RNA sequence: AGCUUAUUUCGCUCAGGCGGAGCUCGACCGCCCGUUGAAGCGAUGAUCGGGUUUAUCGACGAUCAUCGUGUCGUCUAUGGGGUCGAGCCGAUCUGCCGGGUUCUGCCGAUCGCCCCA
Numbered sequence: 001a002g003c004u005u006a007u008u009u010c011g012c013u014c015a016g017g018c019g020g021a022g023c024u025c026g027a028c029c030g031c032c033c034g035u036u037g038a039a040g041c042g043a044u045g046a047u048c049g050g051g052u053u054u055a056u057c058g059a060c061g062a063u064c065a066u067c068g069u070g071u072c073g074u075c076u077a078u079g080g081g082g083u084c085g086a087g088c089c090g091a092u093c094u095g096c097c098g099g100g101u102u103c104u105g106c107c108g109a110u111c112g113c114c115c116c117a
Stems, first nucleotide, its partner, number of pairs: 016032005078117005089112002092109002095106002098103001
RNA: ALIL pseudoknot
Organism: Loktanella atrilutea